[Rfam]
RNA sequence: GCGUCAGUGAUGAUUUGAGUUCUUUUGUCGGAUACCCCUUCACUCUUCUCUGAGUGAGACUCUUAUUCUGACACGC
Number, nucleotide and partner (000 for none) at each position: 001g076002c075003g074004u073005c000006a000007g000008u000009g000010a000011u000012g000013a000014u000015u000016u000017g000018a000019g000020u000021u000022c000023u000024u000025u000026u000027g000028u000029c000030g000031g000032a000033u000034a000035c000036c000037c000038c000039u000040u000041c000042a000043c000044u000045c000046u000047u000048c000049u000050c000051u000052g000053a000054g000055u000056g000057a000058g000059a000060c000061u000062c000063u000064u000065a000066u000067u000068c000069u000070g000071a000072c000073a004074c003075g002076c001
Background:
The record is a 76-nucleotide RNA sequence from Neogobius melanostomus, which matches "Small nucleolar RNA SNORD101" in Rfam. Pairs were carried over by alignment from the consensus structure, which was predicted with PFOLD. Rfam 15.1 lists 658 matches to the family in 617 species. The family is grouped with related families in Rfam's "SNORD101 clan". Rfam classes the family as a C/D-box small nucleolar RNA. Gene Ontology terms of the family: nucleolus and RNA processing.